Notes
Shown here is a 100-nucleotide RNA, a member of the family "DUF3577 RNA".
RNA sequence: CGAUUGGAUAGUGCGGGAAACCGCAUGAAACUCGCCUGUAAUGCCGGUAUCAUCGCGCAAGCGGUGUGGCGACUGCACUUGCUGCUGCGGCGGCUAACUU
Number, nucleotide and partner (000 for none) at each position: 001c000002g000003a000004u000005u000006g000007g000008a000009u000010a000011g026012u025013g024014c023015g022016g021017g000018a000019a000020a000021c016022c015023g014024c013025a012026u011027g000028a000029a000030a000031c000032u072033c071034g070035c069036c068037u000038g000039u000040a000041a000042u000043g000044c000045c000046g000047g000048u000049a000050u000051c066052a065053u064054c063055g062056c061057g000058c000059a000060a000061g056062c055063g054064g053065u052066g051067u000068g036069g035070c034071g033072a032073c000074u000075g000076c000077a000078c000079u000080u000081g094082c093083u092084g091085c090086u000087g000088c000089g000090g085091c084092g083093g082094c081095u000096a000097a000098c000099u000100u000